[Rfam]
RNA sequence: CUGUGAGGGGAAUGAUGUAUUACUAUCGGGCUCUUACGAUGCUGGCUUUUCUUGAUUCGGCAUCAGAGAUGGACAUCAGGG
Numbered sequence: 001c002u003g004u005g006a007g008g009g010g011a012a013u014g015a016u017g018u019a020u021u022a023c024u025a026u027c028g029g030g031c032u033c034u035u036a037c038g039a040u041g042c043u044g045g046c047u048u049u050u051c052u053u054g055a056u057u058c059g060g061c062a063u064c065a066g067a068g069a070u071g072g073a074c075a076u077c078a079g080g081g
Base pairs, nucleotide, nucleotide: 001081002080004078005077006076
RNA: Small nucleolar RNA J33
Organism: Camellia sinensis